[Rfam]
RNA sequence: CCUCCAGUGGGAAAUGAAGUCUCUAUGAAGCUUGACUACAGCCUGUAGUUGUUGUGUAGUUAGUUAUGCAUAGCGUAAGUGGGAGCGUCGAUGUCUGGGCUUAGGCCCAGGCGGAGCGACAAUGUAACACCACUCAUAGCUUGCUCCACAGCUAACCCGAGAGGGAACAUCUGCAGGUGGGUAGUUAGACUGGACGGUUACUUUCGAUAAGGAAACGAAAGCGACCAACGCUCUGCUUAAGCGAGUUGGAAACUCGCUGGUAAGUGAAAAGGCAAAUGCAGGGCUGACUGUGUGCUGAAAAGCGUGGCACGCAGACUGGAAACAGGGGCUUAACGAACGUUGGUAGCUCUUUUAAUGGGGCUCCAAGCUGUCAAACAAGUUACUCUAGAGGUAACCGAUUCGUCGCCGGUGAGAGUCCGCAUCGACCUGGCGCAUUGAUACAUCGAUAUGGGCUUGGGUUAUCCUGGCAGUGUACAAGCCGCCAAGGGUUGGGCUGUACGCCCAUUAAAAACCCACAUGAGCUGCGUUCAGUACGUCGCGAGACAGUACGGUAAUAUCUACUGGAGGUGU
Numbered sequence: 001c002c003u004c005c006a007g008u009g010g011g012a013a014a015u016g017a018a019g020u021c022u023c024u025a026u027g028a029a030g031c032u033u034g035a036c037u038a039c040a041g042c043c044u045g046u047a048g049u050u051g052u053u054g055u056g057u058a059g060u061u062a063g064u065u066a067u068g069c070a071u072a073g074c075g076u077a078a079g080u081g082g083g084a085g086c087g088u089c090g091a092u093g094u095c096u097g098g099g100c101u102u103a104g105g106c107c108c109a110g111g112c113g114g115a116g117c118g119a120c121a122a123u124g125u126a127a128c129a130c131c132a133c134u135c136a137u138a139g140c141u142u143g144c145u146c147c148a149c150a151g152c153u154a155a156c157c158c159g160a161g162a163g164g165g166a167a168c169a170u171c172u173g174c175a176g177g178u179g180g181g182u183a184g185u186u187a188g189a190c191u192g193g194a195c196g197g198u199u200a201c202u203u204u205c206g207a208u209a210a211g212g213a214a215a216c217g218a219a220a221g222c223g224a225c226c227a228a229c230g231c232u233c234u235g236c237u238u239a240a241g242c243g244a245g246u247u248g249g250a251a252a253c254u255c256g257c258u259g260g261u262a263a264g265u266g267a268a269a270a271g272g273c274a275a276a277u278g279c280a281g282g283g284c285u286g287a288c289u290g291u292g293u294g295c296u297g298a299a300a301a302g303c304g305u306g307g308c309a310c311g312c313a314g315a316c317u318g319g320a321a322a323c324a325g326g327g328g329c330u331u332a333a334c335g336a337a338c339g340u341u342g343g344u345a346g347c348u349c350u351u352u353u354a355a356u357g358g359g360g361c362u363c364c365a366a367g368c369u370g371u372c373a374a375a376c377a378a379g380u381u382a383c384u385c386u387a388g389a390g391g392u393a394a395c396c397g398a399u400u401c402g403u404c405g406c407c408g409g410u411g412a413g414a415g416u417c418c419g420c421a422u423c424g425a426c427c428u429g430g431c432g433c434a435u436u437g438a439u440a441c442a443u444c445g446a447u448a449u450g451g452g453c454u455u456g457g458g459u460u461a462u463c464c465u466g467g468c469a470g471u472g473u474a475c476a477a478g479c480c481g482c483c484a485a486g487g488g489u490u491g492g493g494c495u496g497u498a499c500g501c502c503c504a505u506u507a508a509a510a511a512c513c514c515a516c517a518u519g520a521g522c523u524g525c526g527u528u529c530a531g532u533a534c535g536u537c538g539c540g541a542g543a544c545a546g547u548a549c550g551g552u553a554a555u556a557u558c559u560a561c562u563g564g565a566g567g568u569g570u
Stems, first nucleotide, its partner, number of pairs: 001567008010559003015554001022389004027385002029381005035185004042177007051152006058145003062141007078134005085117002096109005156165003188199004201221005225328002231283006237263002240258006264273002288314009316325001318323001340366004345362005398439003402436001404432006413423002450525001451523004455517001456514005463488002467482002470479002490504005531549004535544003
RNA: Archaeal large subunit ribosomal RNA, nucleotides 2037 to 2606